This 74-nucleotide RNA sequence from Parvibaculum lavamentivorans belongs to the Rfam family "Makes More Granules Regulator RNA (mmgR)". NCBI's taxonomy places the organism under Bacteria, Alphaproteobacteria, Hyphomicrobiales, Parvibaculum, Parvibaculum lavamentivorans. Pairs were carried over by alignment from the consensus structure. Its family is annotated with protein binding, response to nitrogen compound and DNA-templated transcription, termination in the Gene Ontology.
RNA sequence: UGCCGCAGCCCUUCCUGGGCGUUUCCUCCCUAAACUUGGGCCCUGGUUCGCCAGGGCCCCUUUUUUUGUCCAAA
Number, nucleotide and partner (000 for none) at each position: 001u000002g000003c000004c000005g000006c000007a000008g020009c019010c018011c017012u000013u000014c000015c000016u000017g011018g010019g009020c008021g000022u000023u000024u000025c000026c000027u000028c000029c000030c000031u000032a000033a000034a000035c000036u000037u000038g059039g058040g057041c056042c055043c054044u053045g052046g051047u000048u000049c000050g000051c046052c045053a044054g043055g042056g041057c040058c039059c038060c000061u000062u000063u000064u000065u000066u000067u000068g000069u000070c000071c000072a000073a000074a000